This 115-nucleotide sequence from Asparagus officinalis belongs to the Rfam family "MIR394 microRNA precursor family". The match comes from Rfam's covariance-model search (75 bits).

RNA sequence: CUCACAUAGGUUAUUGGCAUUCUGUCCACCUCAAAUUCUCUCCAUUUCUGAUAAUUAAAAUCUUGAAAUGUAUAUAAAAUUGGAGGUGGGCAUCCUGCCAACAGACCUCUGUUGG
Numbered sequence: 001c002u003c004a005c006a007u008a009g010g011u012u013a014u015u016g017g018c019a020u021u022c023u024g025u026c027c028a029c030c031u032c033a034a035a036u037u038c039u040c041u042c043c044a045u046u047u048c049u050g051a052u053a054a055u056u057a058a059a060a061u062c063u064u065g066a067a068a069u070g071u072a073u074a075u076a077a078a079a080u081u082g083g084a085g086g087u088g089g090g091c092a093u094c095c096u097g098c099c100a101a102c103a104g105a106c107c108u109c110u111g112u113u114g115g
Stems, first nucleotide, its partner, number of pairs: 011105001014101006023092010